[Rfam]
RNA sequence: UAAACUAUACAUGAAAAGAGAGAUAUGCGUCAACAUACCCCUCUUUAGAAUAGAACCGUUAAAGACGGCAGCUACUAUAGAACAUAAUACAAA
Number, nucleotide and partner (000 for none) at each position: 001u000002a000003a000004a000005c000006u000007a000008u000009a000010c000011a000012u000013g000014a000015a000016a000017a000018g000019a000020g000021a000022g000023a000024u037025a036026u035027g034028c000029g000030u000031c000032a000033a000034c027035a026036u025037a024038c000039c000040c000041c000042u000043c000044u000045u000046u000047a000048g000049a000050a000051u000052a000053g000054a000055a000056c068057c067058g066059u065060u064061a000062a000063a000064g060065a059066c058067g057068g056069c000070a000071g000072c000073u000074a000075c000076u000077a000078u000079a000080g000081a000082a000083c000084a000085u000086a000087a000088u000089a000090c000091a000092a000093a000
The record is a 93-nucleotide RNA from Carnobacterium sp. 17-4, which matches "RNA anti-toxin A" in Rfam. The literature on the family includes a 2010 paper in Nucleic Acids Res by Fozo et al., "Abundance of type I toxin-antitoxin systems in bacteria: searches for new candidates and discovery of novel families". A search with the family's covariance model found it, with a score of 52 bits. The base pairs follow the family's consensus structure, which was predicted with RNAalifold. By type it is an antitoxin RNA.